RNA: mir-184 microRNA precursor family
Organism: Oppiella nova
RNA sequence: GUCUCCUCGUCUCCUUAUCAUUUCCGCUGUCCAGACUGUAUUGGAGAGCUGGACGGAGAACUGAUAAGGGCGGGGGGAGUA
Numbered sequence: 001g002u003c004u005c006c007u008c009g010u011c012u013c014c015u016u017a018u019c020a021u022u023u024c025c026g027c028u029g030u031c032c033a034g035a036c037u038g039u040a041u042u043g044g045a046g047a048g049c050u051g052g053a054c055g056g057a058g059a060a061c062u063g064a065u066a067a068g069g070g071c072g073g074g075g076g077g078a079g080u081a
Stems, first nucleotide, its partner, number of pairs: 012070009022060003027055001030052002